[Rfam]
RNA sequence: UGGUAGAUGCACCCUGAUAACUAAUUUCCCCUAGCUGGUUAAUACCUACUGGGGGUUUUUUAU
Numbered sequence: 001u002g003g004u005a006g007a008u009g010c011a012c013c014c015u016g017a018u019a020a021c022u023a024a025u026u027u028c029c030c031c032u033a034g035c036u037g038g039u040u041a042a043u044a045c046c047u048a049c050u051g052g053g054g055g056u057u058u059u060u061u062a063u
Base pairs, nucleotide, nucleotide: 002013003012004011028055029054030053031052032051033050034049037046038045